Rfam assigns this 68-nucleotide RNA sequence from Tetraodon nigroviridis to the family "mir-221 microRNA precursor family". Its family is annotated with miRNA-mediated post-transcriptional gene silencing and RISC complex in the Gene Ontology. The source organism's lineage runs through Eukaryota, Craniata, Euteleostomi, Eurypterygia and Tetraodon.

RNA sequence: CAGUUGCUCAGUAGGCAGUGUAGAUCCUGUGUAGCAAUCAGCAGCUACAUCUGGCUACUGGGUCUCUG
Numbered sequence: 001c002a003g004u005u006g007c008u009c010a011g012u013a014g015g016c017a018g019u020g021u022a023g024a025u026c027c028u029g030u031g032u033a034g035c036a037a038u039c040a041g042c043a044g045c046u047a048c049a050u051c052u053g054g055c056u057a058c059u060g061g062g063u064c065u066c067u068g
Stems, first nucleotide, its partner, number of pairs: 008061006016053002018050006027044004
Dot-bracket structure: .......((((((..((((((((...((((..........)))))))))).))..)))))).......